This 64-nucleotide sequence from Geosporobacter ferrireducens belongs to the Rfam family "Fluoride riboswitch aptamer (crcB RNA motif)".
RNA sequence: AAUGGUAAAGGUGAUGGAGCUCACCAUAAACAUUGCUGCGGCAAUUAAUGGCUCCUACUAAGGA
Numbered sequence: 001a002a003u004g005g006u007a008a009a010g011g012u013g014a015u016g017g018a019g020c021u022c023a024c025c026a027u028a029a030a031c032a033u034u035g036c037u038g039c040g041g042c043a044a045u046u047a048a049u050g051g052c053u054c055c056u057a058c059u060a061a062g063g064a
Stems, first nucleotide, its partner, number of pairs: 010025004016055006032045004
Dot-bracket structure: .........[[[[..((((((]]]]......((((......))))....)))))).........

Taxonomically the source falls in Geosporobacter (Bacteria, Bacillota, Peptostreptococcales, Thermotaleaceae).
Pairs were carried over by alignment from the consensus structure, which is taken from published work.